This 138-nucleotide sequence from Propithecus coquereli belongs to the Rfam family "Small nucleolar RNA SNORD97".
A search with the family's covariance model found it, with a score of 158 bits.
Pairs were carried over by alignment from the consensus structure, which was predicted with WAR.
Its family is annotated with nucleolus and RNA processing in the Gene Ontology.
The organism belongs to Propithecus, within Eukaryota.
Rfam 15.1 lists 639 matches to the family in 614 species.

RNA sequence: UUGCCCGAUGAUUAUAAAAAGACGCAUUAAGAGGACUAAUGCUGGAAUUCUUCACCCUUUUCUCUCUUUUCUAUACUACUUUUUCUUGCUUUGGAUGUCCAGUGUCCUAUGAGCGAAGAUUAUGAGAUAUGAGGGCAA
Numbered sequence: 001u002u003g004c005c006c007g008a009u010g011a012u013u014a015u016a017a018a019a020a021g022a023c024g025c026a027u028u029a030a031g032a033g034g035a036c037u038a039a040u041g042c043u044g045g046a047a048u049u050c051u052u053c054a055c056c057c058u059u060u061u062c063u064c065u066c067u068u069u070u071c072u073a074u075a076c077u078a079c080u081u082u083u084u085c086u087u088g089c090u091u092u093g094g095a096u097g098u099c100c101a102g103u104g105u106c107c108u109a110u111g112a113g114c115g116a117a118g119a120u121u122a123u124g125a126g127a128u129a130u131g132a133g134g135g136c137a138a
Stems, first nucleotide, its partner, number of pairs: 001138006032051004037046001